[Rfam]
RNA sequence: UGACCUACUAUUCCCCCUAACCGAGAUCAUGGGGUUAAAAUAUCUCUCAUAUCCGCCAGUAAAGGGAUUGGUGGAAAUAAUCGUAUCG
Numbered sequence: 001u002g003a004c005c006u007a008c009u010a011u012u013c014c015c016c017c018u019a020a021c022c023g024a025g026a027u028c029a030u031g032g033g034g035u036u037a038a039a040a041u042a043u044c045u046c047u048c049a050u051a052u053c054c055g056c057c058a059g060u061a062a063a064g065g066g067a068u069u070g071g072u073g074g075a076a077a078u079a080a081u082c083g084u085a086u087c088g
Stems, first nucleotide, its partner, number of pairs: 014034004023046005053074007
Description: This 88-nucleotide RNA sequence belongs to the Rfam family "PhotoRC-II RNA". The sequence is in the family's curated seed alignment.